[Rfam]
A member of the RNA family "ALIL pseudoknot" from Pseudoxanthomonas spadix, 117 nucleotides long. The match comes from Rfam's covariance-model search (111 bits). Taxonomically the source falls in Pseudoxanthomonas spadix (Bacteria, Pseudomonadota, Gammaproteobacteria, Pseudoxanthomonas). Rfam classes the family as a cis-regulatory element. The base pairs follow the family's consensus structure, which is taken from published work.
RNA sequence: CGCGUUUUUUGCCCAGGCGGAGCUCGACCGCCGACUCAAGUCCUAAGGGACUUCAUCGACGAACAUCGACGCACCUUCGGGGUCGAGCCGAUCUGCAAGGUCCUGCAGGUCGCCCCG
Numbered sequence: 001c002g003c004g005u006u007u008u009u010u011g012c013c014c015a016g017g018c019g020g021a022g023c024u025c026g027a028c029c030g031c032c033g034a035c036u037c038a039a040g041u042c043c044u045a046a047g048g049g050a051c052u053u054c055a056u057c058g059a060c061g062a063a064c065a066u067c068g069a070c071g072c073a074c075c076u077u078c079g080g081g082g083u084c085g086a087g088c089c090g091a092u093c094u095g096c097a098a099g100g101u102c103c104u105g106c107a108g109g110u111c112g113c114c115c116c117g
Base pairs, nucleotide, nucleotide: 016032017031018030019029020028078117079116080115081114082113089112090111092109093108094107095106096105097104